[Rfam]
RNA sequence: GACGAUAAACGGCCAUCGCAAUAAACCAUUCGGACCCGGGGGCGGUACCCGGCGCCUCCACCCAAGAUCAGCAGCCAUGCUGGUUUUCGGCGGGGGCGAAACAGGAUCGACGAGGGUGUAAAAGGUGUGCUUUCGUUCGGCAUGAUACCGCCGUUAUCGGGUCAAUCCAAUAGUUGCCAAUGACAACUAUGCUCCGGUUGCUGUCGCCGCGUAA
Dot-bracket structure: (((((........((((........((..(((...(((((.......)))))(((((((................................)))))))............))).)).......)))).....)))))((((........)))).............................................................

Annotation
The family of this 214-nucleotide RNA sequence from Pseudochelatococcus contaminans is "permuted transfer-messenger RNA". Rfam links the family to the GO term RNA catabolic process. It is annotated as a non-coding RNA gene. A reference for the family is Williams (2002), "The tmRNA Website: invasion by an intron", Nucleic Acids Res. The organism belongs to Pseudochelatococcus, within Bacteria.